[Rfam]
RNA sequence: CAAUGCUAAUAGCACACUUACUGAAAGGUAGGGCCGCAAAGCUAUGAGUCUAAGGAUAAUUUAAUUUUCUAUGAUUGUCAGGUUGCCAAA
Numbered sequence: 001c002a003a004u005g006c007u008a009a010u011a012g013c014a015c016a017c018u019u020a021c022u023g024a025a026a027g028g029u030a031g032g033g034c035c036g037c038a039a040a041g042c043u044a045u046g047a048g049u050c051u052a053a054g055g056a057u058a059a060u061u062u063a064a065u066u067u068u069c070u071a072u073g074a075u076u077g078u079c080a081g082g083u084u085g086c087c088a089a090a
Stems, first nucleotide, its partner, number of pairs: 012037002017032006040084004045080003048075003055069002058066003
The record is a 90-nucleotide RNA from Clostridium saccharoperbutylacetonicum, which matches "c-di-GMP-I riboswitch aptamer" in Rfam. It scores 70 bits against the family's covariance model. The family is grouped with related families in Rfam's "c-di-GMP_I riboswitch clan". Taxonomically the source falls in Clostridium saccharoperbutylacetonicum N1-4 (Bacteria, Bacillati, Bacillota, Clostridia).